This 80-nucleotide RNA from Hermetia illucens belongs to the Rfam family "drz-agam-1 ribozyme".
NCBI's taxonomy places the organism under Eukaryota, Neoptera, Eumetabola, Aparaglossata, Hermetia.
Gene Ontology term of the family: catalytic activity.
The base pairs follow the family's consensus structure, which is taken from published work.
RNA sequence: UACCACCAAAACCCUAUCUCUACCUCCACGUGGUUACCGCUGGAAGCUCUUUCUUAACUAAGAGCUACAGACGGAAAAGG
Numbered sequence: 001u002a003c004c005a006c007c008a009a010a011a012c013c014c015u016a017u018c019u020c021u022a023c024c025u026c027c028a029c030g031u032g033g034u035u036a037c038c039g040c041u042g043g044a045a046g047c048u049c050u051u052u053c054u055u056a057a058c059u060a061a062g063a064g065c066u067a068c069a070g071a072c073g074g075a076a077a078a079g080g
Base pairs, nucleotide, nucleotide: 013080014079015078017076019074020073022034023033024032045066046065047064048063049062050061051060